[Rfam]
Overview
Insect-Specific Flavivirus 3' UTR repeats Rb: a 46-nucleotide RNA sequence from Quang Binh virus. The sequence is in the family's curated seed alignment. From the family's description: 3' UTRs in insect specific flavivirus families present three to four repeats of conserved element Rb. Pairs were carried over by alignment from the consensus structure, which was predicted with LocARNA. Rfam classes the family as a cis-regulatory element. Its Rfam clan is "Insect-Specific Flavivirus 3' UTR repeats Ra and Rb elements".
RNA sequence: CCCCAGUCCCUAGGUCAAGGCGUGACCCCGUGGUGUUGAGAGGACA
Numbered sequence: 001c002c003c004c005a006g007u008c009c010c011u012a013g014g015u016c017a018a019g020g021c022g023u024g025a026c027c028c029c030g031u032g033g034u035g036u037u038g039a040g041a042g043g044a045c046a
Stems, first nucleotide, its partner, number of pairs: 002043002004038004009033002013027005